Overview:
This 133-nucleotide RNA from Neomoorella humiferrea belongs to the Rfam family "c-di-GMP-I riboswitch aptamer".
RNA sequence: GGGCGUCAAGGGCAAGCUCCCCGAAAGGGGAUGCGCGCAAAGCCAUGGGUCUAAGGUCCGUGUCGCGCGGGGGUGGCGGUCCGGCAGGGCCUUUAACCUCCGGCGGACGGGCUAUGACAGCCAGGCCGCCGUU
Numbered sequence: 001g002g003g004c005g006u007c008a009a010g011g012g013c014a015a016g017c018u019c020c021c022c023g024a025a026a027g028g029g030g031a032u033g034c035g036c037g038c039a040a041a042g043c044c045a046u047g048g049g050u051c052u053a054a055g056g057u058c059c060g061u062g063u064c065g066c067g068c069g070g071g072g073g074u075g076g077c078g079g080u081c082c083g084g085c086a087g088g089g090c091c092u093u094u095a096a097c098c099u100c101c102g103g104c105g106g107a108c109g110g111g112c113u114a115u116g117a118c119a120g121c122c123a124g125g126c127c128g129c130c131g132u133u
Stems, first nucleotide, its partner, number of pairs: 012038002017033001018031005042126003046123003049118003056112006
The match comes from Rfam's covariance-model search (53 bits). From the family's description: GEMM was predicted in a large-scale screen for bacterial structured RNA regulatory elements. Genes associated with GEMM are involved in a diverse array of functions, including chemotaxis regulation, signal transduction, secretion and chitin. For this family Rfam cites "Identification of 22 candidate structured RNAs in bacteria using the CMfinder comparative genomics pipeline" (Weinberg et al., Nucleic Acids Res, 2007). Lineage of the source: Bacteria > Bacillati > Neomoorellales > Neomoorellaceae > Neomoorella.